A member of the RNA family "Xanthomonadaceae sRNA sX13" from Cognatiluteimonas weifangensis, 112 nucleotides long. For this family Rfam cites "Genome-wide transcriptome analysis of the plant pathogen Xanthomonas identifies sRNAs with putative virulence functions" (Schmidtke et al., Nucleic Acids Res, 2011). A search with the family's covariance model found it, with a score of 80 bits.
[Rfam]
RNA sequence: AAGGUCCGUCGCUGAUCAUCUCCCUCCCCUGGAGUGAUCCGGAACGGCUACCCCUCCCCAGGUACCGUUCCCCGGCCCCGCUAGCCCUCCCCCUGGCUCGCGGGGCUUUUUU
Number, nucleotide and partner (000 for none) at each position: 001a000002a000003g000004g013005u000006c011007c000008g000009u000010c000011g006012c000013u004014g039015a038016u037017c036018a000019u000020c034021u033022c032023c031024c000025u000026c000027c000028c000029c000030u000031g023032g022033a021034g020035u000036g017037a016038u015039c014040c000041g071042g070043a069044a068045c067046g066047g065048c000049u064050a063051c062052c061053c000054c000055u000056c000057c000058c000059c000060a000061g052062g051063u050064a049065c047066c046067g045068u044069u043070c042071c041072c000073c000074g107075g106076c105077c104078c103079c102080g101081c100082u000083a098084g097085c096086c095087c000088u000089c000090c000091c000092c000093c000094u000095g086096g085097c084098u083099c000100g081101c080102g079103g078104g077105g076106c075107u074108u000109u000110u000111u000112u000